[Rfam]
RNA sequence: CGUAUGGUGUUUAGCUUCGGGCUGAAUAGCGAUACGGCCUUAUGAUGAGGU
Numbered sequence: 001c002g003u004a005u006g007g008u009g010u011u012u013a014g015c016u017u018c019g020g021g022c023u024g025a026a027u028a029g030c031g032a033u034a035c036g037g038c039c040u041u042a043u044g045a046u047g048a049g050g051u
Stems, first nucleotide, its partner, number of pairs: 001036005007030002011025005
This 51-nucleotide RNA sequence from Alteromonas hispanica belongs to the Rfam family "L31-Gammaproteobacteria ribosomal protein leader". A reference for the family is Eckert and Weinberg (2020), "Discovery of 20 novel ribosomal leader candidates in bacteria and archaea", BMC Microbiol. The match comes from Rfam's covariance-model search (61 bits). Pairs were carried over by alignment from the consensus structure, which is taken from published work. The family's RNA type in Rfam is cis-regulatory leader.